[Rfam]
RNA sequence: ACAGUGGGCGGGAUGAUCGCUGGCGGCGACGGUCGCGGUGGUUCGUCCACAGCGAUCUUUCGCCAUUGGAGGAAAGUCCGGGCUCCGCAGGGCAGGAUGGUCGAUAACGUCGACCGGCCGUGAGGUCAGGGAAAGUGCAGCAGAGAGUAGACCGCCGAACGGUUCGCGGCCGCUCGCUCCCACGAGCGUCGGCAGCGGAUGCGUGGUAAGGGUGAAACGGUGCGGUAAGAGCGCACCAGCGGCCGGGGUGACUCGGCCGGCUCGGUAAACCCCAUCCGGAGCUAGACCAAACAGGGUGCAAUCGAGGCGGCCCGCCUCGUCAUCGACAUCCGGGUAGGUCGCAGUGGAGGCGGCGAGCAAUCGUCGUGCACAGAUAAAUGGUCAUCGGCAGCGAUUCGCUGUUACAAAACCCGGCUUACAAGCCCACUGUCUCG
Numbered sequence: 001a002c003a004g005u006g007g008g009c010g011g012g013a014u015g016a017u018c019g020c021u022g023g024c025g026g027c028g029a030c031g032g033u034c035g036c037g038g039u040g041g042u043u044c045g046u047c048c049a050c051a052g053c054g055a056u057c058u059u060u061c062g063c064c065a066u067u068g069g070a071g072g073a074a075a076g077u078c079c080g081g082g083c084u085c086c087g088c089a090g091g092g093c094a095g096g097a098u099g100g101u102c103g104a105u106a107a108c109g110u111c112g113a114c115c116g117g118c119c120g121u122g123a124g125g126u127c128a129g130g131g132a133a134a135g136u137g138c139a140g141c142a143g144a145g146a147g148u149a150g151a152c153c154g155c156c157g158a159a160c161g162g163u164u165c166g167c168g169g170c171c172g173c174u175c176g177c178u179c180c181c182a183c184g185a186g187c188g189u190c191g192g193c194a195g196c197g198g199a200u201g202c203g204u205g206g207u208a209a210g211g212g213u214g215a216a217a218c219g220g221u222g223c224g225g226u227a228a229g230a231g232c233g234c235a236c237c238a239g240c241g242g243c244c245g246g247g248g249u250g251a252c253u254c255g256g257c258c259g260g261c262u263c264g265g266u267a268a269a270c271c272c273c274a275u276c277c278g279g280a281g282c283u284a285g286a287c288c289a290a291a292c293a294g295g296g297u298g299c300a301a302u303c304g305a306g307g308c309g310g311c312c313c314g315c316c317u318c319g320u321c322a323u324c325g326a327c328a329u330c331c332g333g334g335u336a337g338g339u340c341g342c343a344g345u346g347g348a349g350g351c352g353g354c355g356a357g358c359a360a361u362c363g364u365c366g367u368g369c370a371c372a373g374a375u376a377a378a379u380g381g382u383c384a385u386c387g388g389c390a391g392c393g394a395u396u397c398g399c400u401g402u403u404a405c406a407a408a409a410c411c412c413g414g415c416u417u418a419c420a421a422g423c424c425c426a427c428u429g430u431c432u433c434g
Stems, first nucleotide, its partner, number of pairs: 001430009011419001012386007020069004025064004074417003078414005083281004090313004095277005100114005115129001116127004130272002135270002137266002152211002154207003160201002219237006239261001240259008285340004294331005304318005349369001350367007
RNA: Bacterial RNase P class A